[Rfam]
The family of this 74-nucleotide RNA sequence from Alligator sinensis is "Mammalian CPEB3 ribozyme".
RNA sequence: UGCAAAUUCAAGGCCCUAGCAGAAGCACUUGUGGCACAGCACUGUCAGAUUCCAAGGAAUCUGCAAAUUCUGCU
Numbered sequence: 001u002g003c004a005a006a007u008u009c010a011a012g013g014c015c016c017u018a019g020c021a022g023a024a025g026c027a028c029u030u031g032u033g034g035c036a037c038a039g040c041a042c043u044g045u046c047a048g049a050u051u052c053c054a055a056g057g058a059a060u061c062u063g064c065a066a067a068u069u070c071u072g073c074u
Base pairs, nucleotide, nucleotide: 013040014039018074019073020072021071022070023069024068025037046063047062048061049060050059051058052057
The base pairs follow the family's consensus structure, which is taken from published work. A search with the family's covariance model found it, with a score of 35 bits. Taxonomically the source falls in Alligator (Eukaryota, Metazoa, Gnathostomata, Sauria).